Photosynthesis regulatory RNA1: an 82-nucleotide RNA sequence from Brasilonema sennae. Formerly known as Syr1 discovered in Synechocystis sp PCC 6803, is a regulatory factor controlling photosynthetic functions. PsrR1 interacts with the ribosome binding regions of several photosynthesis-related mRNAs. In particular, psaL mRNA is processed by RNase E only in the presence of PsrR1.
[Rfam]
RNA sequence: UAAAAGUUUUAGAUUUUGGAAUCAGGACUCAUUGACAUUUGGACUUCUCCUCCUAGCCUCGGUUGGUUUCACCGAGGUUUUU
Numbered sequence: 001u002a003a004a005a006g007u008u009u010u011a012g013a014u015u016u017u018g019g020a021a022u023c024a025g026g027a028c029u030c031a032u033u034g035a036c037a038u039u040u041g042g043a044c045u046u047c048u049c050c051u052c053c054u055a056g057c058c059u060c061g062g063u064u065g066g067u068u069u070c071a072c073c074g075a076g077g078u079u080u081u082u
Stems, first nucleotide, its partner, number of pairs: 056078008
Background
The match comes from Rfam's covariance-model search (52 bits). By type it is a small RNA. The organism belongs to Brasilonema sennae, within Bacteria. On this family, see Georg et al., Plant Cell 2014: "The small regulatory RNA SyR1/PsrR1 controls photosynthetic functions in cyanobacteria".